[Rfam]
RNA sequence: AAUUAAGGAAGUUCGACUACGAACGCAACGUCCUGUUGCAACGUCGAACUGACCUACAUCCUGUAGG
Numbered sequence: 001a002a003u004u005a006a007g008g009a010a011g012u013u014c015g016a017c018u019a020c021g022a023a024c025g026c027a028a029c030g031u032c033c034u035g036u037u038g039c040a041a042c043g044u045c046g047a048a049c050u051g052a053c054c055u056a057c058a059u060c061c062u063g064u065a066g067g
Base pairs, nucleotide, nucleotide: 011049012048013047014046015045016044017043025039026038027037028036029035053067054066055065056064057063
Rfam assigns this 67-nucleotide RNA sequence from Pueribacillus theae to the family "Bacillaceae-1 RNA". NCBI's taxonomy places the organism under Bacteria, Bacilli, Caryophanales, Bacillaceae, Pueribacillus.